[Rfam]
RNA sequence: CUCUUAUAAAGAGCGGUGGAGGGAAGUGCCCUAUGAAACCCGGCAACCAUCACAAUAUGUGAAAAGGUGCCAAGUCACGCGAAGUGGAUACUUUGAAAGAUAAGAG
Numbered sequence: 001c002u003c004u005u006a007u008a009a010a011g012a013g014c015g016g017u018g019g020a021g022g023g024a025a026g027u028g029c030c031c032u033a034u035g036a037a038a039c040c041c042g043g044c045a046a047c048c049a050u051c052a053c054a055a056u057a058u059g060u061g062a063a064a065a066g067g068u069g070c071c072a073a074g075u076c077a078c079g080c081g082a083a084g085u086g087g088a089u090a091c092u093u094u095g096a097a098a099g100a101u102a103a104g105a106g
Stems, first nucleotide, its partner, number of pairs: 001106007013041001015040003021031003026078003042071004047067002050062003075098001080095006

SAM riboswitch aptamer (S box leader): a 106-nucleotide sequence from Lysinibacillus telephonicus. The base pairs follow the family's consensus structure, which is taken from published work.